[Rfam]
RNA sequence: CUUGACGCUGCCCAGCCACAGCGGCUCCGACCGGUCCUGGCCGUAGGUGGCCAGCAACGCCUGCGCCUC
Numbered sequence: 001c002u003u004g005a006c007g008c009u010g011c012c013c014a015g016c017c018a019c020a021g022c023g024g025c026u027c028c029g030a031c032c033g034g035u036c037c038u039g040g041c042c043g044u045a046g047g048u049g050g051c052c053a054g055c056a057a058c059g060c061c062u063g064c065g066c067c068u069c
Stems, first nucleotide, its partner, number of pairs: 014026004027063001032059002037054003041050003
RNA: ASpks TB sRNA